[Rfam]
The record is an 87-nucleotide sequence from Cnephaeus nilssonii, which matches "mir-9195 microRNA precursor family" in Rfam.
Rfam 15.1 lists 438 matches to the family in 7 species.
Its family is annotated with miRNA-mediated post-transcriptional gene silencing and RISC complex in the Gene Ontology.
Lineage of the source: Eukaryota > Eumetazoa > Vertebrata > Chiroptera > Cnephaeus.
RNA sequence: AGAGGCCCUCUGCGGCCAGGGCGGAAUGUUUGCCUCAUCGCCAUGGCAACGAAGCAAACAUUCCGCCAGGCUGCUCAUGUUGCCUGC
Numbered sequence: 001a002g003a004g005g006c007c008c009u010c011u012g013c014g015g016c017c018a019g020g021g022c023g024g025a026a027u028g029u030u031u032g033c034c035u036c037a038u039c040g041c042c043a044u045g046g047c048a049a050c051g052a053a054g055c056a057a058a059c060a061u062u063c064c065g066c067c068a069g070g071c072u073g074c075u076c077a078u079g080u081u082g083c084c085u086g087c
Stems, first nucleotide, its partner, number of pairs: 004084003012074006020067014038049001040047002